Rfam assigns this 234-nucleotide RNA sequence from Miscanthus lutarioriparius to the family "MIR6217 microRNA precursor family".
The organism belongs to Miscanthus, within Eukaryota.
Rfam 15.1 lists 2,266 matches to the family in 13 species.
The match comes from Rfam's covariance-model search (125 bits).
RNA sequence: UGGCCGCAAAAUAAGUUAUUCUGUGGCCACUUUCAGUUACGAUAAUUACUAUACUAAUUUACGAGAUUAUGGUAACUCCCUUAUGAAUGAUUUACUAUAGCAUUAUGGCAUUAUGGUAAGUAUCAUCUUGAAUUAGAGUAACCCAUGUAUCGUAAAUGUGUAUUGUCAUUAUCGUAAAUUGGUACAAACAUUAUGUAAAUCAAGGUGGCCAUAGAAUAAGUUAUUCUGUGGCCA
Dot-bracket structure: ((((((((.(((((.((((((((((((((((((...((((.(((((...(.(((((((((((..(((.(((..(......((((..(((..(((((.(((..(....(...............).....)..))).))))....)..))).)))).......)...))).)))))))))))))).)...)))))))))...)))))))))))))))))).))))).))))))))